Shown here is an 85-nucleotide RNA from Solanum tuberosum, a member of the family "MIR8024 microRNA precursor family". A search with the family's covariance model found it, with a score of 63 bits. Rfam 15.1 lists 661 matches to the family in 8 species.
RNA sequence: UUGUAGACUUAAAGAUUUCAACUUGCAGACUUGAAGAAUUUGAAGACCACAACUUGCAGACUUGAUGAAUUUGAAGACCUCAACU
Numbered sequence: 001u002u003g004u005a006g007a008c009u010u011a012a013a014g015a016u017u018u019c020a021a022c023u024u025g026c027a028g029a030c031u032u033g034a035a036g037a038a039u040u041u042g043a044a045g046a047c048c049a050c051a052a053c054u055u056g057c058a059g060a061c062u063u064g065a066u067g068a069a070u071u072u073g074a075a076g077a078c079c080u081c082a083a084c085u
Stems, first nucleotide, its partner, number of pairs: 001083003006078001009074005016067001018065003024058004031052003036047001
The source organism's lineage runs through Eukaryota, Viridiplantae, Streptophytina, Tracheophyta and Solanum.